[Rfam]
The record is a 50-nucleotide RNA, which matches "eL15-Euryarchaeota ribosomal protein leader" in Rfam. It is annotated as a cis-regulatory leader. Rfam's curators put it in the seed alignment.
RNA sequence: CGGGAUUCGUCCCGUUCAAAGGAAUGUAGCCUUACCGGCUGAACCUUGAG
Numbered sequence: 001c002g003g004g005a006u007u008c009g010u011c012c013c014g015u016u017c018a019a020a021g022g023a024a025u026g027u028a029g030c031c032u033u034a035c036c037g038g039c040u041g042a043a044c045c046u047u048g049a050g
Base pairs, nucleotide, nucleotide: 001014002013003012004011005010020046021045022044028040029039030038031037